[Rfam]
RNA sequence: CUUUAACAAUCCGGAACAAGCUGAAAAUUGAAACGACGUGUUGGUUCAUUUCUCCGUAAUAAGAAAUGAAUAACAACAUGUUCGAGUCUCUCAAAUGCUUGCAGUCCCAAGCGUUGCAAAACGCCUGUG
Number, nucleotide and partner (000 for none) at each position: 001c000002u000003u000004u000005a000006a000007c000008a000009a000010u000011c000012c000013g000014g000015a000016a000017c000018a000019a000020g102021c101022u000023g100024a099025a000026a000027a096028u095029u094030g000031a000032a000033a000034c084035g083036a082037c000038g081039u080040g079041u078042u000043g000044g000045u000046u000047c000048a000049u000050u000051u000052c000053u000054c000055c000056g000057u000058a000059a000060u000061a000062a000063g000064a000065a000066a000067u000068g000069a000070a000071u000072a000073a000074c000075a000076a000077c000078a041079u040080g039081u038082u036083c035084g034085a000086g000087u000088c000089u000090c000091u000092c000093a000094a029095a028096u027097g000098c000099u024100u023101g021102c020103a000104g000105u000106c000107c000108c127109a126110a000111g124112c123113g122114u121115u000116g000117c000118a000119a000120a000121a114122c113123g112124c111125c000126u109127g108128u000129g000